Shown here is a 215-nucleotide sequence from bacterium 1XD21-70, a member of the family "Group II catalytic intron D1-D4-5".
Group II introns are found in rRNA, tRNA and mRNA of organelles in fungi, plants and protists, and also in mRNA in bacteria.
A search with the family's covariance model found it, with a score of 130 bits.
On this family, see Bonen and Vogel, Trends Genet 2001: "The ins and outs of group II introns".
Rfam 15.1 lists 720 matches to the family in 418 species.
The pairing is the family consensus, mapped onto this sequence.

RNA sequence: GUGAACUGAUAAUUCGAUAGGUGGAAUGACGGGGUAACGCCCUGAAACGCCUACUCUUGGUGGACUUGCGUCAGCCGUAAAGGCUGGGGUUGGAAGCUCCACGACAAAGGCUGAGAGUUUGAACGUUAUGUUCUUAAUGCCGUAAUGGUUUGUUUUACACCAACGAAAACGCCCCAGAGGUGGGGUGCGCAGCCUAUAGGCCCAGAGUCUAUAAG
Number, nucleotide and partner (000 for none) at each position: 001g000002u000003g000004a000005a000006c000007u000008g000009a000010u000011a000012a000013u000014u000015c000016g000017a000018u053019a052020g051021g050022u049023g048024g000025a000026a000027u000028g000029a000030c000031g043032g042033g041034g040035u000036a000037a000038c000039g000040c034041c033042c032043u031044g000045a000046a000047a000048c023049g022050c021051c020052u019053a018054c207055u206056c205057u204058u000059g000060g000061u101062g100063g099064a098065c093066u092067u000068g090069c089070g000071u087072c086073a085074g084075c083076c082077g000078u000079a000080a000081a000082g076083g075084c074085u073086g072087g071088g000089g069090u068091u000092g066093g065094a000095a000096g000097c000098u064099c063100c062101a061102c000103g000104a000105c000106a000107a000108a000109g202110g201111c200112u199113g000114a000115g000116a000117g193118u192119u191120u000121g000122a000123a000124c000125g000126u000127u000128a000129u000130g000131u000132u000133c000134u000135u000136a000137a000138u000139g000140c000141c165142g164143u163144a000145a000146u000147g161148g160149u000150u000151u000152g000153u000154u000155u000156u000157a000158c000159a000160c148161c147162a000163a143164c142165g141166a000167a000168a000169a000170c187171g186172c185173c184174c183175c182176a181177g000178a000179g000180g000181u176182g175183g174184g173185g172186u171187g170188c000189g000190c000191a119192g118193c117194c000195u000196a000197u000198a000199g112200g111201c110202c109203c000204a057205g056206a055207g054208u000209c000210u000211a000212u000213a000214a000215g000